[Rfam]
The family of this 129-nucleotide RNA sequence from Kitasatospora griseola is "SAM riboswitch aptamer (S box leader)". A search with the family's covariance model found it, with a score of 79 bits. The source organism's lineage runs through Bacteria, Bacillati, Actinomycetes, Streptomycetaceae and Kitasatospora.
RNA sequence: UGCUCAUCCAGAGGGACUGAGGGAACGGCCCGUUGAAGUCCCGGCAACCCUCCCGCGCGGCCUUGCAGGCCCGGCGGGACAGGUGCCAAUUCCGGCCCGGGCGCGACCGCGUCCCGGGGAAGAUGAGGA
Numbered sequence: 001u002g003c004u005c006a007u008c009c010a011g012a013g014g015g016a017c018u019g020a021g022g023g024a025a026c027g028g029c030c031c032g033u034u035g036a037a038g039u040c041c042c043g044g045c046a047a048c049c050c051u052c053c054c055g056c057g058c059g060g061c062c063u064u065g066c067a068g069g070c071c072c073g074g075c076g077g078g079a080c081a082g083g084u085g086c087c088a089a090u091u092c093c094g095g096c097c098c099g100g101g102c103g104c105g106a107c108c109g110c111g112u113c114c115c116g117g118g119g120a121a122g123a124u125g126a127g128g129a
Base pairs, nucleotide, nucleotide: 001129003127004126005125006124007123008122013042014041015040016039017038021031022030023029026094027093028092043087044086045085046084048083049082051079052078053077054076055075056074091121096118097117098116099115100114101113